[Rfam]
RNA sequence: AAUAAUAUCUAACCUUAUCCGAUUUUAGGCAUAAAAAAACCUGCCAGAAAGCAGGUUUUUUUAUUGU
Numbered sequence: 001a002a003u004a005a006u007a008u009c010u011a012a013c014c015u016u017a018u019c020c021g022a023u024u025u026u027a028g029g030c031a032u033a034a035a036a037a038a039a040c041c042u043g044c045c046a047g048a049a050a051g052c053a054g055g056u057u058u059u060u061u062u063a064u065u066g067u
Base pairs, nucleotide, nucleotide: 005018006017035060036059037058038057039056040055041054042053043052044051